[Rfam]
RNA sequence: AGGGCCAGAAGAGGUGCGUUAACUAGGUAGUUAAUGGGAAGAGAUCAAACUCUGACGAUCAUUAACGAGGGAGUAUAACGCCGAGGCAAUAAUGUAUUUGAUGACGUUAUUGUCGGUUGUAGAGGUUGAAUCCCUGCAAUUGUCACCUUUUUAGGUGGAGAGCUUCUGGUCUU
Numbered sequence: 001a002g003g004g005c006c007a008g009a010a011g012a013g014g015u016g017c018g019u020u021a022a023c024u025a026g027g028u029a030g031u032u033a034a035u036g037g038g039a040a041g042a043g044a045u046c047a048a049a050c051u052c053u054g055a056c057g058a059u060c061a062u063u064a065a066c067g068a069g070g071g072a073g074u075a076u077a078a079c080g081c082c083g084a085g086g087c088a089a090u091a092a093u094g095u096a097u098u099u100g101a102u103g104a105c106g107u108u109a110u111u112g113u114c115g116g117u118u119g120u121a122g123a124g125g126u127u128g129a130a131u132c133c134c135u136g137c138a139a140u141u142g143u144c145a146c147c148u149u150u151u152u153a154g155g156u157g158g159a160g161a162g163c164u165u166c167u168g169g170u171c172u173u
Stems, first nucleotide, its partner, number of pairs: 006168006016081006022074003030066008085114011115141008124132001143158005
The family of this 173-nucleotide RNA from Thalassotalea marina is "Lysine riboswitch aptamer". The family's consensus secondary structure is taken from published work. Taxonomically the source falls in Thalassotalea (Bacteria, Pseudomonadati, Gammaproteobacteria, Alteromonadales).